This 72-nucleotide sequence from Promicromonospora citrea belongs to the Rfam family "Actino-pnp RNA".
RNA sequence: UCCGGUCCUCGGUAGUGGCCUCCCGAGCGACCCGCACCGCGGCGGCUCGGUGGGCCUCGAUCGAUGACCGUC
Numbered sequence: 001u002c003c004g005g006u007c008c009u010c011g012g013u014a015g016u017g018g019c020c021u022c023c024c025g026a027g028c029g030a031c032c033c034g035c036a037c038c039g040c041g042g043c044g045g046c047u048c049g050g051u052g053g054g055c056c057u058c059g060a061u062c063g064a065u066g067a068c069c070g071u072c
Stems, first nucleotide, its partner, number of pairs: 003070005009064005017056005023050006
The source organism's lineage runs through Bacteria, Bacillati, Micrococcales, Promicromonosporaceae and Promicromonospora.